This 106-nucleotide RNA sequence from Sphingomonas sp. YR710 belongs to the Rfam family "SAM-I/IV (S-adenosyl methionine) riboswitch aptamer". Pairs were carried over by alignment from the consensus structure, which is taken from published work.
[Rfam]
Nucleotides: 106
Base pairs, nucleotide, nucleotide: 006078007077008076009075010074015031017030018028019027020026021025032058033057034056037054038053039052040050041049042048045101046100080090081089082088083087
Number, partner (000 for none) and nucleotide at each position: 001000a002000c003000c004000a005000u006078a007077c008076a009075u010074c011000a012000a013000g014000a015031g016000u017030u018028g019027g020026g021025c022000a023000g024000u025021g026020c027019c028018c029000g030017a031015c032058g033057c034056c035000a036000a037054c038053c039052u040050g041049c042048u043000u044000u045101c046100c047000g048042g049041g050040c051000a052039a053038g054037g055000u056034g057033g058032c059000g060000c061000u062000u063000c064000c065000g066000u067000a068000a069000g070000g071000a072000a073000g074010g075009a076008u077007g078006u079000g080090g081089c082088c083087g084000a085000a086000c087083c088082g089081g090080c091000a092000a093000c094000g095000a096000a097000a098000c099000g100046g101045g102000u103000c104000a105000u106000g